[Rfam]
RNA sequence: AUAAUGAUACUUCCGUUCAGUCACAGCACCAAGUGGAAUUGGAAUAAGGCAAUGAGAGCGGCUCUGUAAGAACCACAGAGGGGUGAAAAUCCCAUGA
Numbered sequence: 001a002u003a004a005u006g007a008u009a010c011u012u013c014c015g016u017u018c019a020g021u022c023a024c025a026g027c028a029c030c031a032a033g034u035g036g037a038a039u040u041g042g043a044a045u046a047a048g049g050c051a052a053u054g055a056g057a058g059c060g061g062c063u064c065u066g067u068a069a070g071a072a073c074c075a076c077a078g079a080g081g082g083g084u085g086a087a088a089a090u091c092c093c094a095u096g097a
Stems, first nucleotide, its partner, number of pairs: 012094001013061006062080003066076002081093003